[Rfam]
Actino-pnp RNA: an 80-nucleotide RNA from Actinokineospora bangkokensis. A search with the family's covariance model found it, with a score of 64 bits.

RNA sequence: GCCGGUCCUCGGUAGUGGUCUCCGGGACCGCCCCCGCACAGGGAGUGCGGGGAGCCCGAGGACUUCGAUCGAAGACCGGC
Numbered sequence: 001g002c003c004g005g006u007c008c009u010c011g012g013u014a015g016u017g018g019u020c021u022c023c024g025g026g027a028c029c030g031c032c033c034c035c036g037c038a039c040a041g042g043g044a045g046u047g048c049g050g051g052g053a054g055c056c057c058g059a060g061g062a063c064u065u066c067g068a069u070c071g072a073a074g075a076c077c078g079g080c
Stems, first nucleotide, its partner, number of pairs: 001080007009072005017064005023058004
Lineage of the source: Bacteria > Actinomycetota > Pseudonocardiales > Pseudonocardiaceae > Actinokineospora. The family's RNA type in Rfam is cis-regulatory element.